Annotation:
Bacterial RNase P class A: a 384-nucleotide RNA sequence from Cyanothece sp. PCC 7425. The source organism's lineage runs through Bacteria, Bacillati, Gomontiellales, Cyanothecaceae and Cyanothece. The base pairs follow the family's consensus structure, which is taken from published work. Gene Ontology terms of the family: ribonuclease P activity, tRNA processing and dimeric ribonuclease P complex.
[Rfam]
RNA sequence: AGAGUAGGCGAGGUGGUUGCGGAUUUGUCUAAGCGAUAAAUCUGAGGAAAGUCCGGGCUUCCGAAAGACCAGACUUGCUGGAUAACGCCCAGUGCGAGCGAUCGUGAGGAUAGUGCCACAGAAAAAUACCGCCGAUGGGGCCUUUCUCACAGAUAAGGGCUCACAGGUAAGGGUGCAAAGGUGUGGUAAGAGCGCACCAGCAGUAUCGUGAGGUACUGGCUCGGUAAACCCCGGUCGGAAGCAAGGUUGAAGGGACAAGGGUUGGUCUUUUUCCUGUCCCGCGUUUGAAACCGCUAGAGGCAUCUGGUAACAGUUGUCCCAGAUAGAUAACCGCCCUGCUGGUCCGCCAGUGGAACAGAACCCGGCUUAUGUCCUGCUCUUUCC
Numbered sequence: 001a002g003a004g005u006a007g008g009c010g011a012g013g014u015g016g017u018u019g020c021g022g023a024u025u026u027g028u029c030u031a032a033g034c035g036a037u038a039a040a041u042c043u044g045a046g047g048a049a050a051g052u053c054c055g056g057g058c059u060u061c062c063g064a065a066a067g068a069c070c071a072g073a074c075u076u077g078c079u080g081g082a083u084a085a086c087g088c089c090c091a092g093u094g095c096g097a098g099c100g101a102u103c104g105u106g107a108g109g110a111u112a113g114u115g116c117c118a119c120a121g122a123a124a125a126a127u128a129c130c131g132c133c134g135a136u137g138g139g140g141c142c143u144u145u146c147u148c149a150c151a152g153a154u155a156a157g158g159g160c161u162c163a164c165a166g167g168u169a170a171g172g173g174u175g176c177a178a179a180g181g182u183g184u185g186g187u188a189a190g191a192g193c194g195c196a197c198c199a200g201c202a203g204u205a206u207c208g209u210g211a212g213g214u215a216c217u218g219g220c221u222c223g224g225u226a227a228a229c230c231c232c233g234g235u236c237g238g239a240a241g242c243a244a245g246g247u248u249g250a251a252g253g254g255a256c257a258a259g260g261g262u263u264g265g266u267c268u269u270u271u272u273c274c275u276g277u278c279c280c281g282c283g284u285u286u287g288a289a290a291c292c293g294c295u296a297g298a299g300g301c302a303u304c305u306g307g308u309a310a311c312a313g314u315u316g317u318c319c320c321a322g323a324u325a326g327a328u329a330a331c332c333g334c335c336c337u338g339c340u341g342g343u344c345c346g347c348c349a350g351u352g353g354a355a356c357a358g359a360a361c362c363c364g365g366c367u368u369a370u371g372u373c374c375u376g377c378u379c380u381u382u383c384c
Stems, first nucleotide, its partner, number of pairs: 001380008011370001012335007020044009049368003053365005058241004067269002072236003076233002078092004093107001094105004108231002113229002115225003129172002131168003136163004180198006200220001201218007245292004252280006260274002264270001299318004304313003